[Rfam]
RNA sequence: AACCCAUCAAGAGCGGCUAAGAGAUCUGGCUCGACGACGCCGCAGCAACCACCGGGAAACCGAAAGGUGCUAAUGCCAGAAACGAUGGAGC
Numbered sequence: 001a002a003c004c005c006a007u008c009a010a011g012a013g014c015g016g017c018u019a020a021g022a023g024a025u026c027u028g029g030c031u032c033g034a035c036g037a038c039g040c041c042g043c044a045g046c047a048a049c050c051a052c053c054g055g056g057a058a059a060c061c062g063a064a065a066g067g068u069g070c071u072a073a074u075g076c077c078a079g080a081a082a083c084g085a086u087g088g089a090g091c
Stems, first nucleotide, its partner, number of pairs: 004088005013043005021032003026079004044071004049067002052062001054060001075083001
Background
Rfam assigns this 91-nucleotide RNA sequence from Glutamicibacter creatinolyticus to the family "SAM riboswitch aptamer (S box leader)". Lineage of the source: Bacteria > Bacillati > Micrococcales > Micrococcaceae > Glutamicibacter. The base pairs follow the family's consensus structure, which is taken from published work.